[Rfam]
RNA: Actino-pnp RNA
Organism: Mycolicibacterium chitae
Nucleotides: 057
Stems, first nucleotide, its partner, number of pairs: 002056006009049005017041011
Number, partner (000 for none) and nucleotide at each position: 001000g002056g003055c004054g005053g006052u007051c008000u009049u010048c011047g012046g013045u014000a015000g016000u017041g018040g019039c020038u021037g022036c023035c024034g025033g026032g027031g028000g029000a030000a031027u032026u033025c034024c035023g036022g037021c038020a039019g040018c041017u042000u043000c044000g045013a046012u047011c048010g049009a050000c051007g052006g053005c054004c055003g056002c057000a